RNA sequence: ACCGGUUCAGCUCGACCCCCCGGAGCUGAACCUUCGGCGGCCCCCGUCCCUCCCCCCUGGCGGGGGUCGCCCUUU
Numbered sequence: 001a002c003c004g005g006u007u008c009a010g011c012u013c014g015a016c017c018c019c020c021c022g023g024a025g026c027u028g029a030a031c032c033u034u035c036g037g038c039g040g041c042c043c044c045c046g047u048c049c050c051u052c053c054c055c056c057c058u059g060g061c062g063g064g065g066g067u068c069g070c071c072c073u074u075u
Base pairs, nucleotide, nucleotide: 004032005031006030007029008028009027010026011025012024013023036071037070038069039068040067041066042065043064044063045062046061047060048059
RNA: 6C RNA